[Rfam]
RNA sequence: GAGCUAUGAAGAUUUUAAAAGGAUCUGAGAUUCCAUUGAAGACACAAGAUCCAACUCUGAGCUCACUAAAAAG
Numbered sequence: 001g002a003g004c005u006a007u008g009a010a011g012a013u014u015u016u017a018a019a020a021g022g023a024u025c026u027g028a029g030a031u032u033c034c035a036u037u038g039a040a041g042a043c044a045c046a047a048g049a050u051c052c053a054a055c056u057c058u059g060a061g062c063u064c065a066c067u068a069a070a071a072a073g
Stems, first nucleotide, its partner, number of pairs: 001064004